A member of the RNA family "caulobacter sRNA CC2171" from Methylorubrum extorquens, 170 nucleotides long. The literature on the family includes a 2008 paper in Mol Microbiol by Landt et al., "Small non-coding RNAs in Caulobacter crescentus". The organism belongs to Methylorubrum extorquens, within Bacteria.

[Rfam]
RNA sequence: CAACGAACGAAAGGAGGUGAUCCAGUGUCUCAUUGUCAUCAGCCGUCGCCGACGACCAAGACCUGGACUGUUGCCUCCGGCGUGUGCGCCUAACGCACCCGCGGGAUCUCAGCAGGUUUCGUCGGACUGACCGGUUCGACAAUGGAAGGGCCGCCCCUCGGGGCGGCCCU
Numbered sequence: 001c002a003a004c005g006a007a008c009g010a011a012a013g014g015a016g017g018u019g020a021u022c023c024a025g026u027g028u029c030u031c032a033u034u035g036u037c038a039u040c041a042g043c044c045g046u047c048g049c050c051g052a053c054g055a056c057c058a059a060g061a062c063c064u065g066g067a068c069u070g071u072u073g074c075c076u077c078c079g080g081c082g083u084g085u086g087c088g089c090c091u092a093a094c095g096c097a098c099c100c101g102c103g104g105g106a107u108c109u110c111a112g113c114a115g116g117u118u119u120c121g122u123c124g125g126a127c128u129g130a131c132c133g134g135u136u137c138g139a140c141a142a143u144g145g146a147a148g149g150g151c152c153g154c155c156c157c158u159c160g161g162g163g164c165g166g167c168c169c170u
Stems, first nucleotide, its partner, number of pairs: 016023002031144007047082005086096003097117003100112001103110002122134004147170010